[Rfam]
RNA: small nucleolar RNA snoR114
Organism: Hibiscus trionum
RNA sequence: GAGCAUGAAGAAAACCGUGCUAUUGUGAUGAUAGGGUCGUCACGCUUCUCUGAUCACUUGAUGAGAAAUUGCACACCUGAGCUU
Number, nucleotide and partner (000 for none) at each position: 001g084002a083003g082004c081005a000006u000007g000008a000009a000010g000011a000012a000013a000014a000015c000016c000017g000018u000019g000020c000021u000022a000023u000024u000025g000026u000027g000028a000029u000030g000031a000032u000033a000034g000035g000036g000037u000038c000039g000040u000041c000042a000043c000044g000045c000046u000047u000048c000049u000050c000051u000052g000053a000054u000055c000056a000057c000058u000059u000060g000061a000062u000063g000064a000065g000066a000067a000068a000069u000070u000071g000072c000073a000074c000075a000076c000077c000078u000079g000080a000081g004082c003083u002084u001